The family of this 76-nucleotide sequence from Cricetulus griseus is "mir-3072 microRNA precursor family". Gene Ontology terms of the family: RISC complex and miRNA-mediated post-transcriptional gene silencing. Taxonomically the source falls in Cricetulus (Eukaryota, Metazoa, Tetrapoda, Euarchontoglires).

[Rfam]
RNA sequence: GGGAGUGCGAGGGACCCCGAGGGAGGGCAGGCUGCCCCAGGCCCUGCCCCCUCCAGGAAGCCUUCUCGCUCCAGCC
Number, nucleotide and partner (000 for none) at each position: 001g000002g000003g071004a070005g069006u068007g067008c000009g065010a064011g063012g062013g061014a000015c000016c000017c057018c056019g000020a000021g053022g052023g051024a000025g049026g048027g047028c046029a045030g044031g043032c000033u000034g042035c041036c040037c000038c000039a000040g036041g035042c034043c031044c030045u029046g028047c027048c026049c025050c000051c023052u022053c021054c000055a000056g018057g017058a000059a000060g000061c013062c012063u011064u010065c009066u000067c007068g006069c005070u004071c003072c000073a000074g000075c000076c000